[Rfam]
RNA: Small nucleolar RNA snoR53Y
Organism: Sesamum indicum
RNA sequence: GUUCCCCAUGAUGCUUUUACUUUGAGACCAUGCUAAUUCUGAUCAUAAGUUGAUGAAAUAUAUCUCUGUGAUUCUGAGGGAACA
Numbered sequence: 001g002u003u004c005c006c007c008a009u010g011a012u013g014c015u016u017u018u019a020c021u022u023u024g025a026g027a028c029c030a031u032g033c034u035a036a037u038u039c040u041g042a043u044c045a046u047a048a049g050u051u052g053a054u055g056a057a058a059u060a061u062a063u064c065u066c067u068g069u070g071a072u073u074c075u076g077a078g079g080g081a082a083c084a
Stems, first nucleotide, its partner, number of pairs: 001083005